About this RNA:
rpsB sRNA: a 112-nucleotide RNA sequence from Paenirhizobium selenitireducens. The match comes from Rfam's covariance-model search (43 bits). A reference for the family is Meyer et al. (2009), "Identification of candidate structured RNAs in the marine organism 'Candidatus Pelagibacter ubique'", BMC Genomics. It is annotated as a small RNA. The family's consensus secondary structure is taken from published work. The organism belongs to Paenirhizobium selenitireducens, within Bacteria.
RNA sequence: CACACGCGAGACUUGGGAUCGACCGGGAGACAUCCGGAAGGUUCCGCCGGUGGCGUCCUUGAAAAAGGUGCUGUUUGUCUCGCGGGGGUUCAACCGGAAAAGGAGAAAAAGG
Numbered sequence: 001c002a003c004a005c006g007c008g009a010g011a012c013u014u015g016g017g018a019u020c021g022a023c024c025g026g027g028a029g030a031c032a033u034c035c036g037g038a039a040g041g042u043u044c045c046g047c048c049g050g051u052g053g054c055g056u057c058c059u060u061g062a063a064a065a066a067g068g069u070g071c072u073g074u075u076u077g078u079c080u081c082g083c084g085g086g087g088g089u090u091c092a093a094c095c096g097g098a099a100a101a102g103g104a105g106a107a108a109a110a111g112g
Stems, first nucleotide, its partner, number of pairs: 001087001003085001005084007015045002024036003052072006